A member of the RNA family "Small nucleolar RNA Z279/snoR105/snoR108", 102 nucleotides long. Gene Ontology terms of the family: RNA processing and nucleolus. On this family, see Marker et al., Curr Biol 2002: "Experimental RNomics: identification of 140 candidates for small non-messenger RNAs in the plant Arabidopsis thaliana". The family is grouped with related families in Rfam's "snoU13 clan". This family includes the plant snoRNAs known as Z279, snoR105 and snoR108.
RNA sequence: GGGAAAUGAGGAGUGGUUAUUAAACUCGCUUAAUGCGAGAAGAGUGUUUCGCUCAGCCUGUUACGACUAUUGAGCACUCUCCUUCUUUUAUCAUCUGAUCCC
Numbered sequence: 001g002g003g004a005a006a007u008g009a010g011g012a013g014u015g016g017u018u019a020u021u022a023a024a025c026u027c028g029c030u031u032a033a034u035g036c037g038a039g040a041a042g043a044g045u046g047u048u049u050c051g052c053u054c055a056g057c058c059u060g061u062u063a064c065g066a067c068u069a070u071u072g073a074g075c076a077c078u079c080u081c082c083u084u085c086u087u088u089u090a091u092c093a094u095c096u097g098a099u100c101c102c
Base pairs, nucleotide, nucleotide: 001102002101003100004099014093015092016091017090025039026038027037028036029035041080042079043078044077045076046075047074048073058072060070061069